This 136-nucleotide RNA sequence from Albula goreensis belongs to the Rfam family "Small nucleolar RNA SNORA84". A search with the family's covariance model found it, with a score of 86 bits. By type it is an H/ACA-box small nucleolar RNA. For this family Rfam cites "Experimental RNomics: identification of 140 candidates for small non-messenger RNAs in the plant Arabidopsis thaliana" (Marker et al., Curr Biol, 2002). The family's consensus secondary structure was predicted with WAR. NCBI's taxonomy places the organism under Eukaryota, Metazoa, Albuliformes, Albulinae, Albula. Gene Ontology terms of the family: nucleolus and RNA processing.
[Rfam]
Nucleotides: 136
Stems, first nucleotide, its partner, number of pairs: 001058004008048001012044005020035004070128001072126006082118002084115004089109007
Number, partner (000 for none) and nucleotide at each position: 001058g002057c003056c004055c005000u006000g007000u008048g009000g010000u011000u012044c013043c014042u015041g016040g017000a018000g019000c020035c021034u022033g023032c024000c025000u026000u027000u028000c029000u030000g031000u032023g033022c034021a035020g036000u037000u038000c039000c040016c041015c042014a043013g044012g045000u046000u047000u048008u049000u050000g051000a052000a053000a054000a055004g056003g057002g058001c059000a060000c061000a062000c063000a064000u065000u066000a067000a068000u069000u070128c071000u072126g073125u074124g075123a076122u077121u078000c079000a080000u081000u082118g083117c084115g085114u086113g087112g088000g089109g090108u091107u092106u093105g094104u095103a096000a097000c098000u099000u100000c101000c102000a103095u104094g105093u106092g107091g108090g109089u110000c111000c112087c113086c114085a115084u116000a117083g118082c119000c120000c121077g122076g123075u124074c125073a126072c127000a128070g129000a130000a131000a132000c133000a134000u135000u136000u